[Rfam]
RNA sequence: CCACAUAACGGGCAAACCCGCCGAAAGGCGGGGGCGCAAAGCCAUGGGUCUACAGCCAUUCAGGCCACGAUUGCCAGGUUGCCGGU
Numbered sequence: 001c002c003a004c005a006u007a008a009c010g011g012g013c014a015a016a017c018c019c020g021c022c023g024a025a026a027g028g029c030g031g032g033g034g035c036g037c038a039a040a041g042c043c044a045u046g047g048g049u050c051u052a053c054a055g056c057c058a059u060u061c062a063g064g065c066c067a068c069g070a071u072u073g074c075c076a077g078g079u080u081g082c083c084g085g086u
Stems, first nucleotide, its partner, number of pairs: 012037002017032006040080004045076003048071003055065003

Shown here is an 86-nucleotide RNA sequence from Clostridiales bacterium PH28_bin88, a member of the family "c-di-GMP-I riboswitch aptamer". The match comes from Rfam's covariance-model search (77 bits). Taxonomically the source falls in Eubacteriales (Bacteria, Bacillati, Bacillota, Clostridia). Its family is annotated with cyclic-di-GMP binding in the Gene Ontology.